This 71-nucleotide RNA from Candidatus Thiodictyon syntrophicum belongs to the Rfam family "tRNA".
It scores 61 bits against the family's covariance model.
The family's RNA type in Rfam is transfer RNA.
NCBI's taxonomy places the organism under Bacteria, Pseudomonadati, Pseudomonadota, Chromatiales, Thiodictyon.
Rfam's curators write: Transfer RNA (tRNA) molecules are approximately 80 nucleotides in length.
[Rfam]
RNA sequence: GGCUGAGUGGCAGAGUGGUCAUGCAGCGGCCUGCAAAGCCGCCCACCCCGGUUCGAUUCCGGGCUCAGCCU
Dot-bracket structure: (((((((..(((.........))).(((((.......)))))....(((((.......)))))))))))).